Small nucleolar RNA SNORA32: a 120-nucleotide sequence from Semnornis frantzii. Its family is annotated with RNA processing and nucleolus in the Gene Ontology. The match comes from Rfam's covariance-model search (60 bits). NCBI's taxonomy places the organism under Eukaryota, Sarcopterygii, Sauropsida, Sauria, Semnornis. From the family's description: ACA32 is a member of the H/ACA class of snoRNA that guide the sites of modification of uridines to pseudouridines.
[Rfam]
RNA sequence: UGGUCAUUACCAAGGCUGCUGGGAUGUUGUUCCUAGUGAGUUGUGGAGAUGACCAUAAAGCAAGUCCAUUAGACUCUUGAAUCGCCACAAAAUGUGGCGUUGAGUCGGAUGGAAAUAAAG
Numbered sequence: 001u002g003g004u005c006a007u008u009a010c011c012a013a014g015g016c017u018g019c020u021g022g023g024a025u026g027u028u029g030u031u032c033c034u035a036g037u038g039a040g041u042u043g044u045g046g047a048g049a050u051g052a053c054c055a056u057a058a059a060g061c062a063a064g065u066c067c068a069u070u071a072g073a074c075u076c077u078u079g080a081a082u083c084g085c086c087a088c089a090a091a092a093u094g095u096g097g098c099g100u101u102g103a104g105u106c107g108g109a110u111g112g113a114a115a116u117a118a119a120g
Stems, first nucleotide, its partner, number of pairs: 003053005010046003026041003065113004072106004083099005